[Rfam]
RNA sequence: AGUUGUGGUGGUUUUCUUUUUGGCACAUUUAUUAAGUUUUCAAAUGGUCCUGACUCUGCCACAGAUAUUAUACAGGAGCUGGCAACGACUUCAUGACAAAGAGAUCUCCUUCUAGCCUUGCCUGAACCAGAGAUUGGCUCCCACAAGU
Numbered sequence: 001a002g003u004u005g006u007g008g009u010g011g012u013u014u015u016c017u018u019u020u021u022g023g024c025a026c027a028u029u030u031a032u033u034a035a036g037u038u039u040u041c042a043a044a045u046g047g048u049c050c051u052g053a054c055u056c057u058g059c060c061a062c063a064g065a066u067a068u069u070a071u072a073c074a075g076g077a078g079c080u081g082g083c084a085a086c087g088a089c090u091u092c093a094u095g096a097c098a099a100a101g102a103g104a105u106c107u108c109c110u111u112c113u114a115g116c117c118u119u120g121c122c123u124g125a126a127c128c129a130g131a132g133a134u135u136g137g138c139u140c141c142c143a144c145a146a147g148u
Stems, first nucleotide, its partner, number of pairs: 005062007022050002026046005075141006081090002107133002110130002
The family of this 148-nucleotide sequence from Tursiops truncatus is "Small nucleolar RNA SNORA12". Rfam classes the family as an H/ACA-box small nucleolar RNA. A search with the family's covariance model found it, with a score of 145 bits. Pairs were carried over by alignment from the consensus structure, which was predicted with RNAalifold. On this family, see Gu et al., Nucleic Acids Res 2005: "A novel experimental approach for systematic identification of box H/ACA snoRNAs from eukaryotes". U108 belongs to the H/ACA family of snoRNAs. The sequence is predicted to guide the pseudouridylation of the U372 residue in the 28S rRNA subunit.